[Rfam]
RNA sequence: AGCGGCUCUGCAAGCUGCUGGGCUCAAGCCUUCACGAGGCGCAGCUUGUCACCCGGGGGCGGGGUGCGAAUUUUGCC
Numbered sequence: 001a002g003c004g005g006c007u008c009u010g011c012a013a014g015c016u017g018c019u020g021g022g023c024u025c026a027a028g029c030c031u032u033c034a035c036g037a038g039g040c041g042c043a044g045c046u047u048g049u050c051a052c053c054c055g056g057g058g059g060c061g062g063g064g065u066g067c068g069a070a071u072u073u074u075g076c077c
Base pairs, nucleotide, nucleotide: 013046014045015044016043017042018041021077022076023075026072027071028040029039030038050066051065052064053063054062055060

Mammalian CPEB3 ribozyme: a 77-nucleotide RNA from Effrenium voratum.
Taxonomically the source falls in Effrenium (Eukaryota, Sar, Alveolata, Suessiales).
Pairs were carried over by alignment from the consensus structure, which is taken from published work.
The match comes from Rfam's covariance-model search (38 bits).
Rfam's curators write: The mammalian CPEB3 ribozyme is a self cleaving RNA located in the second intron of the CPEB3 gene which belongs to a family of genes regulating messenger RNA polyadenylation. This ribozyme is highly conserved and found only in mammals.